[Rfam]
RNA sequence: UCAUGCUACAUUGAGGCCAGGGCAGGAGCAUUCCUCUUGCAGCCUCUGCCAGACUCUGAGCAUCUGCAAAUUCUGCA
Number, nucleotide and partner (000 for none) at each position: 001u000002c000003a000004u000005g000006c000007u000008a000009c000010a000011u000012u000013g046014a045015g044016g043017c042018c000019a000020g000021g000022g076023c075024a074025g073026g072027a071028g040029c039030a038031u000032u000033c000034c000035u000036c000037u000038u030039g029040c028041a000042g017043c016044c015045u014046c013047u000048g000049c000050c066051a065052g064053a063054c000055u000056c060057u000058g000059a000060g056061c000062a000063u053064c052065u051066g050067c000068a000069a000070a000071u027072u026073c025074u024075g023076c022077a000
RNA: Mammalian CPEB3 ribozyme
Organism: Ramphastos sulfuratus